The record is a 116-nucleotide RNA sequence from Geobacillus sp. Y4.1MC1, which matches "Listeria sRNA rli30" in Rfam.

RNA sequence: UUUACAUAUUCUGCAAAUGCUCCAGGAUAUCUAGCUCCAAUCACUGUUAAUUUUUCGCAUUGUGACAGUAAUCCUUUUUUACAGCUUUCACACUUUCCGCAAUAAAGUGCAGGGCA
Number, nucleotide and partner (000 for none) at each position: 001u000002u000003u000004a030005c000006a028007u027008a000009u026010u025011c000012u000013g020014c019015a000016a000017a000018u000019g014020c013021u000022c000023c000024a000025g010026g009027a007028u006029a000030u004031c000032u000033a000034g115035c114036u113037c112038c000039a000040a088041u000042c000043a000044c084045u083046g082047u081048u000049a000050a061051u000052u059053u000054u000055u000056c000057g000058c000059a052060u000061u050062g075063u000064g073065a072066c000067a000068g000069u000070a000071a000072u065073c064074c000075u062076u000077u000078u000079u000080u000081a047082c046083a045084g044085c000086u000087u000088u040089c000090a000091c109092a108093c107094u106095u105096u104097c000098c000099g000100c000101a000102a000103u000104a096105a095106a094107g093108u092109g091110c000111a000112g037113g036114g035115c034116a000

On this family, see Toledo-Arana et al., Nature 2009: "The Listeria transcriptional landscape from saprophytism to virulence". NCBI's taxonomy places the organism under Bacteria, Bacillati, Bacillota, Bacilli, Geobacillus.